Source information: A member of the RNA family "nhaA-I RNA" from Ramlibacter montanisoli, 52 nucleotides long. It is annotated as a riboswitch. Rfam's curators write: Acidobacteria, Alphaproteobacteria, Betaproteobacteria and Gammaproteobacteria, Verrucomicrobia, cand. division NC10.

[Rfam]
RNA sequence: GGGUGUUCCAGCGUCCGCCGGAGCAGGUUCAUGCGCAGGUCGGGCCGCCGCG
Numbered sequence: 001g002g003g004u005g006u007u008c009c010a011g012c013g014u015c016c017g018c019c020g021g022a023g024c025a026g027g028u029u030c031a032u033g034c035g036c037a038g039g040u041c042g043g044g045c046c047g048c049c050g051c052g
Stems, first nucleotide, its partner, number of pairs: 005024005011018002034052003038049003
Dot-bracket structure: ....(((((.((....)).))))).........(((.(((......))))))